[Rfam]
RNA: TPP riboswitch aptamer (THI element)
RNA sequence: AUAUCCACACAUGGGAGCUCGCGGGAAGCGGGCUGAGAUUACGACUAUGCCGUCGUUGACCAUCGGAACCUGUUGGGUAAUGCCAGCGUAGGGAGAGUGACCUUGUGAUAG
Numbered sequence: 001a002u003a004u005c006c007a008c009a010c011a012u013g014g015g016a017g018c019u020c021g022c023g024g025g026a027a028g029c030g031g032g033c034u035g036a037g038a039u040u041a042c043g044a045c046u047a048u049g050c051c052g053u054c055g056u057u058g059a060c061c062a063u064c065g066g067a068a069c070c071u072g073u074u075g076g077g078u079a080a081u082g083c084c085a086g087c088g089u090a091g092g093g094a095g096a097g098u099g100a101c102c103u104u105g106u107g108a109u110a111g
Stems, first nucleotide, its partner, number of pairs: 006099003010095001011063004016057001017033005041056004069092004073086004